The family of this 77-nucleotide RNA sequence from Gallus gallus is "Small nucleolar RNA SNORD20".
Pairs were carried over by alignment from the consensus structure.
A reference for the family is Nicoloso et al. (1994), "U20, a novel small nucleolar RNA, is encoded in an intron of the nucleolin gene in mammals", Mol Cell Biol.
Rfam links the family to the GO terms nucleolus and RNA processing.
The organism belongs to Gallus, within Eukaryota.
[Rfam]
RNA sequence: UGGAUAUGAUGACUGAUUAUCUGAAAUGCUGAUGAAACCACUUCUAAAGUCCUCUAGAUAGUCAAGUGCUGAUCCAG
Numbered sequence: 001u002g003g004a005u006a007u008g009a010u011g012a013c014u015g016a017u018u019a020u021c022u023g024a025a026a027u028g029c030u031g032a033u034g035a036a037a038c039c040a041c042u043u044c045u046a047a048a049g050u051c052c053u054c055u056a057g058a059u060a061g062u063c064a065a066g067u068g069c070u071g072a073u074c075c076a077g
Base pairs, nucleotide, nucleotide: 001076002075003074004073

U20 is a C/D box small nucleolar RNA that is encoded in intron 11 of the nucleolin gene in human, mouse and rat.